[Rfam]
Shown here is a 54-nucleotide RNA sequence from Phenylobacterium glaciei, a member of the family "COG3860 RNA". The match comes from Rfam's covariance-model search (64 bits). Lineage of the source: Bacteria > Alphaproteobacteria > Caulobacterales > Caulobacteraceae > Phenylobacterium.
RNA sequence: CGGUCCGCAGUUCACCGAGGCAUCGCCGCCCGCAGGGGUUCGCUAAACCUGCUU
Numbered sequence: 001c002g003g004u005c006c007g008c009a010g011u012u013c014a015c016c017g018a019g020g021c022a023u024c025g026c027c028g029c030c031c032g033c034a035g036g037g038g039u040u041c042g043c044u045a046a047a048c049c050u051g052c053u054u
Stems, first nucleotide, its partner, number of pairs: 001017004028039004